Shown here is a 392-nucleotide RNA sequence from Domibacillus mangrovi, a member of the family "Bacterial RNase P class B". From the family's description: Ribonuclease P (RNase P) is a ubiquitous endoribonuclease, found in archaea, bacteria and eukarya as well as chloroplasts and mitochondria. Its best characterised activity is the generation of mature 5'-ends of tRNAs by cleaving the 5'-leader elements of precursor-tRNAs. Cellular RNase Ps are ribonucleoproteins. RNA from bacterial RNase Ps retains its catalytic activity in the absence of the protein subunit, i.e. it is a ribozyme. Isolated eukaryotic and archaeal RNase P RNA has not been shown to retain its catalytic function, but is still essential for the catalytic activity of the holoenzyme. Although the archaeal and eukaryotic holoenzyme s have a much greater protein content than the bacterial ones, the RNA cores from all the three lineages are homologous -- helices corresponding to P1, P2, P3, P4, and P10/11 are common to all cellular RNase P RNAs. Yet, there is considerable sequence variation, particularly among the eukaryotic RNAs. The source organism's lineage runs through Bacteria, Bacillati, Bacillota, Caryophanales and Domibacillus. Gene Ontology terms of the family: tRNA processing, dimeric ribonuclease P complex and ribonuclease P activity. On this family, see Frank and Pace, Annu Rev Biochem 1998: "Ribonuclease P: unity and diversity in a tRNA processing ribozyme".

[Rfam]
RNA sequence: ACGUUCGGGUAAUCGCUGCAGUCCGAGCGGCUGCAGAGGAAAGUCCAUGCUCGCACAGUGCUGAGAUGCCUGUAGUGAUCGCGCCUGGCGAAACCAUAAGCCAGGGCAGCAUUUUAAUGCUGACGGCAGGGAAAACACCUAAGUCCCUAGAGGAUAUGGUGUGAAUACUUUGAAAGUGCCACAGUGACGGAGCUUUAUCAGAAAUGAUAAAGGUGGAACGAGGUAAACCCCGUGAGCGAGCAACCCAAAUUUUGGUAGGGGCACUUUCCGGACGGAACUGAACGAAUGGAAAGGCAGAAGCUUAAGUUUCUGCAGACAGAUGAUUGCCACCGGAGUACGAGGUCAUACCCUGGCCGUUUGCAGUACGAAGGAACAAAACAUGGCUUACAGAA
Numbered sequence: 001a002c003g004u005u006c007g008g009g010u011a012a013u014c015g016c017u018g019c020a021g022u023c024c025g026a027g028c029g030g031c032u033g034c035a036g037a038g039g040a041a042a043g044u045c046c047a048u049g050c051u052c053g054c055a056c057a058g059u060g061c062u063g064a065g066a067u068g069c070c071u072g073u074a075g076u077g078a079u080c081g082c083g084c085c086u087g088g089c090g091a092a093a094c095c096a097u098a099a100g101c102c103a104g105g106g107c108a109g110c111a112u113u114u115u116a117a118u119g120c121u122g123a124c125g126g127c128a129g130g131g132a133a134a135a136c137a138c139c140u141a142a143g144u145c146c147c148u149a150g151a152g153g154a155u156a157u158g159g160u161g162u163g164a165a166u167a168c169u170u171u172g173a174a175a176g177u178g179c180c181a182c183a184g185u186g187a188c189g190g191a192g193c194u195u196u197a198u199c200a201g202a203a204a205u206g207a208u209a210a211a212g213g214u215g216g217a218a219c220g221a222g223g224u225a226a227a228c229c230c231c232g233u234g235a236g237c238g239a240g241c242a243a244c245c246c247a248a249a250u251u252u253u254g255g256u257a258g259g260g261g262c263a264c265u266u267u268c269c270g271g272a273c274g275g276a277a278c279u280g281a282a283c284g285a286a287u288g289g290a291a292a293g294g295c296a297g298a299a300g301c302u303u304a305a306g307u308u309u310c311u312g313c314a315g316a317c318a319g320a321u322g323a324u325u326g327c328c329a330c331c332g333g334a335g336u337a338c339g340a341g342g343u344c345a346u347a348c349c350c351u352g353g354c355c356g357u358u359u360g361c362a363g364u365a366c367g368a369a370g371g372a373a374c375a376a377a378a379c380a381u382g383g384c385u386u387a388c389a390g391a392a
Base pairs, nucleotide, nucleotide: 004392005391006390007388008328009327010326011325012324013323014322016036017035018034019033020032021031041386042385043384045383046382047381048380049379050240051239052238053237054236055073056072057071058070060069061068079235080234081233082232083231084105085104086103087102088101089100106124107122108121109120110119111118112117125230126229128170129169130168136161137160138159139158143155144154145153176228177227178224179223180222193212194211195210196209197208198207199206200205244260245259246258264293265292266291267290268289269288270287294313295312296311297310298309299308300307301306330371331370335366336365337364338363